[Rfam]
RNA sequence: ACUCAACACUAACAAAUUAAAAUGGGCGAAACUUUGUCACUAAAGCAUGCCAUCUUGCAUGGAUCCUUGAACGAUAAGAUAGCUCAAAACUUGUUCUAUAGAGUUU
Numbered sequence: 001a002c003u004c005a006a007c008a009c010u011a012a013c014a015a016a017u018u019a020a021a022a023u024g025g026g027c028g029a030a031a032c033u034u035u036g037u038c039a040c041u042a043a044a045g046c047a048u049g050c051c052a053u054c055u056u057g058c059a060u061g062g063a064u065c066c067u068u069g070a071a072c073g074a075u076a077a078g079a080u081a082g083c084u085c086a087a088a089a090c091u092u093g094u095u096c097u098a099u100a101g102a103g104u105u106u
Base pairs, nucleotide, nucleotide: 023086024085025084026083027082034077035076036075037074038073043068044067045066050062051061052060053059
RNA: 6S-Flavo RNA
Organism: Flavobacterium sp. xlx-221